[Rfam]
RNA sequence: GAGCACUUUGAAACAAUAAAGUACAGACUGGCCGUUGCCAUGGUAAUCCUGUUUAGUACGGGAGGAACCGCAGGUUCAGACAUUUGGUAUAUGUGCCUGGUCGAAAGGCCAAUGGUGCGAAGCUACCAUCUGAGGGACUAGGACUGAACGCCUUUAAGUCUGAAUCCCGCCCAGAUAUGCAACGGUAUAUUCAUUGCCUGACACGUGGCUAGGCGGGCCUACGUACCCCUGCAGGUGCUUAAUUCAGGCUAUGUGCCUGGCUAGGUCCGGUGGGUCUGCUUUAAUGCCAGAGUGAUAUGACCAAAACGGUACUCUGGACUUCGGGGCACGAAGGUCGACACGAUAUCCAAAUAUGAUAUGGGCCUGAAGGCAAUAAAUGGUUUGUAGACAACCUAGUGUUUUGUCUUGGAGACGUGAGUGUAACAGCAGCCAUCACACUGCGAGACACUGAGUCCUUUCCCCACUUGACGUAAUGACUUGA
Numbered sequence: 001g002a003g004c005a006c007u008u009u010g011a012a013a014c015a016a017u018a019a020a021g022u023a024c025a026g027a028c029u030g031g032c033c034g035u036u037g038c039c040a041u042g043g044u045a046a047u048c049c050u051g052u053u054u055a056g057u058a059c060g061g062g063a064g065g066a067a068c069c070g071c072a073g074g075u076u077c078a079g080a081c082a083u084u085u086g087g088u089a090u091a092u093g094u095g096c097c098u099g100g101u102c103g104a105a106a107g108g109c110c111a112a113u114g115g116u117g118c119g120a121a122g123c124u125a126c127c128a129u130c131u132g133a134g135g136g137a138c139u140a141g142g143a144c145u146g147a148a149c150g151c152c153u154u155u156a157a158g159u160c161u162g163a164a165u166c167c168c169g170c171c172c173a174g175a176u177a178u179g180c181a182a183c184g185g186u187a188u189a190u191u192c193a194u195u196g197c198c199u200g201a202c203a204c205g206u207g208g209c210u211a212g213g214c215g216g217g218c219c220u221a222c223g224u225a226c227c228c229c230u231g232c233a234g235g236u237g238c239u240u241a242a243u244u245c246a247g248g249c250u251a252u253g254u255g256c257c258u259g260g261c262u263a264g265g266u267c268c269g270g271u272g273g274g275u276c277u278g279c280u281u282u283a284a285u286g287c288c289a290g291a292g293u294g295a296u297a298u299g300a301c302c303a304a305a306a307c308g309g310u311a312c313u314c315u316g317g318a319c320u321u322c323g324g325g326g327c328a329c330g331a332a333g334g335u336c337g338a339c340a341c342g343a344u345a346u347c348c349a350a351a352u353a354u355g356a357u358a359u360g361g362g363c364c365u366g367a368a369g370g371c372a373a374u375a376a377a378u379g380g381u382u383u384g385u386a387g388a389c390a391a392c393c394u395a396g397u398g399u400u401u402u403g404u405c406u407u408g409g410a411g412a413c414g415u416g417a418g419u420g421u422a423a424c425a426g427c428a429g430c431c432a433u434c435a436c437a438c439u440g441c442g443a444g445a446c447a448c449u450g451a452g453u454c455c456u457u458u459c460c461c462c463a464c465u466u467g468a469c470g471u472a473a474u475g476a477c478u479u480g481a
Stems, first nucleotide, its partner, number of pairs: 031186008041173003046076001048074005077132004085125003092119005098111005134168003141161005193374007375479002378476001381395001384392001402470004407463003411454002418448004426441004